RNA sequence: CCAAUCCAGCCCAUGCAAAGGUUAGCCGCCGGCAUGGAAUAGACCUGCACGGUUGAGGAGUUAACGAAUCGGUUGAAGCUGCAGGAAUAGCAGUUCGUCAGCCACAACGGAAGUGAAGGCAGUAAGCCCCGAAAUUUUCCAUUGUUGCACAGGGCCAAGGGUUUCAUAUCCCGGAAGCCAGUAUCGUGCCUCCCGAUAGAGGCGAGGGUUGCACGGCGUGCCGGGGUCUCAGGCCG
Numbered sequence: 001c002c003a004a005u006c007c008a009g010c011c012c013a014u015g016c017a018a019a020g021g022u023u024a025g026c027c028g029c030c031g032g033c034a035u036g037g038a039a040u041a042g043a044c045c046u047g048c049a050c051g052g053u054u055g056a057g058g059a060g061u062u063a064a065c066g067a068a069u070c071g072g073u074u075g076a077a078g079c080u081g082c083a084g085g086a087a088u089a090g091c092a093g094u095u096c097g098u099c100a101g102c103c104a105c106a107a108c109g110g111a112a113g114u115g116a117a118g119g120c121a122g123u124a125a126g127c128c129c130c131g132a133a134a135u136u137u138u139c140c141a142u143u144g145u146u147g148c149a150c151a152g153g154g155c156c157a158a159g160g161g162u163u164u165c166a167u168a169u170c171c172c173g174g175a176a177g178c179c180a181g182u183a184u185c186g187u188g189c190c191u192c193c194c195g196a197u198a199g200a201g202g203c204g205a206g207g208g209u210u211g212c213a214c215g216g217c218g219u220g221c222c223g224g225g226g227u228c229u230c231a232g233g234c235c236g
Stems, first nucleotide, its partner, number of pairs: 012036005020030003023205001025203002039088002044085004050075007060065001126227006147221004152217001153179003159172003184216006192208003
RNA: Group II catalytic intron D1-D4-6